[Rfam]
RNA sequence: UGCAAAUGAUGCUUUCUCACGAUGGUCUUCCUAGCUCAAGAAGCUCUGACGACGUUGCCAUUGGCAAACACUGAUGCAGUUUG
Number, nucleotide and partner (000 for none) at each position: 001u078002g077003c076004a075005a000006a000007u000008g000009a000010u000011g000012c000013u000014u000015u000016c000017u000018c000019a000020c000021g000022a000023u000024g000025g000026u000027c000028u000029u000030c000031c000032u000033a000034g000035c000036u000037c000038a000039a000040g000041a000042a000043g000044c000045u000046c000047u000048g000049a000050c000051g000052a000053c000054g000055u000056u000057g000058c000059c000060a000061u000062u000063g000064g000065c000066a000067a000068a000069c000070a000071c000072u000073g000074a000075u004076g003077c002078a001079g000080u000081u000082u000083g000

Annotation
Shown here is an 83-nucleotide RNA from Nothobranchius furzeri, a member of the family "Small nucleolar RNA SNORD35". NCBI's taxonomy places the organism under Eukaryota, Chordata, Euteleostomi, Teleostei, Nothobranchius. A reference for the family is Nicoloso et al. (1996), "Intron-encoded, antisense small nucleolar RNAs: the characterization of nine novel species points to their direct role as guides for the 2'-O-ribose methylation of rRNAs", J Mol Biol. Rfam describes the family as follows. U35 is a C/D box snoRNA located in intron 6 of ribosomal protein L13A and intron 3 of ribosomal protein S11 in humans and at homologous positions in mouse and chicken ribosomal protein genes. U35 guides the methylation of 2'-O-ribose sites in 28S rRNA.